RNA sequence: AGCGGUUUUCUUCGCGGGGGAGCUCGACCCCCGAGGGCGAUGAUCAUGGGGUUCAUCGACGAGCUGCGGGUCGAGGGGCAUGCGGUCGAGUCGGUCUGUCGGGUCCUGCGUGGGCAGGGCUGUCAGGUCGCCGCG
Numbered sequence: 001a002g003c004g005g006u007u008u009u010c011u012u013c014g015c016g017g018g019g020g021a022g023c024u025c026g027a028c029c030c031c032c033g034a035g036g037g038c039g040a041u042g043a044u045c046a047u048g049g050g051g052u053u054c055a056u057c058g059a060c061g062a063g064c065u066g067c068g069g070g071u072c073g074a075g076g077g078g079c080a081u082g083c084g085g086u087c088g089a090g091u092c093g094g095u096c097u098g099u100c101g102g103g104u105c106c107u108g109c110g111u112g113g114g115c116a117g118g119g120c121u122g123u124c125a126g127g128u129c130g131c132c133g134c135g
Base pairs, nucleotide, nucleotide: 016032017031018030019029020028081135082134083133084132085131092130093129095127096126097125098124100122101121
The family of this 135-nucleotide RNA sequence from Knoellia koreensis is "ALIL pseudoknot".
Rfam classes the family as a cis-regulatory element.